[Rfam]
RNA sequence: GCAGGGAUGACCGAGUGGCUGAAGGUGCACGCCUGGAAAGCGUGUAUACGAGAAAUUGUAUCGAGGGUUCAAAUCCCUCUCCCUGCG
Numbered sequence: 001g002c003a004g005g006g007a008u009g010a011c012c013g014a015g016u017g018g019c020u021g022a023a024g025g026u027g028c029a030c031g032c033c034u035g036g037a038a039a040g041c042g043u044g045u046a047u048a049c050g051a052g053a054a055a056u057u058g059u060a061u062c063g064a065g066g067g068u069u070c071a072a073a074u075c076c077c078u079c080u081c082c083c084u085g086c087g
Stems, first nucleotide, its partner, number of pairs: 001086007010026003028044005063079005
Description: The record is an 87-nucleotide RNA from Peptoniphilus duerdenii, which matches "tRNA" in Rfam. Rfam classes the family as a transfer RNA. Transfer RNA (tRNA) molecules are approximately 80 nucleotides in length. The family's consensus secondary structure is taken from published work.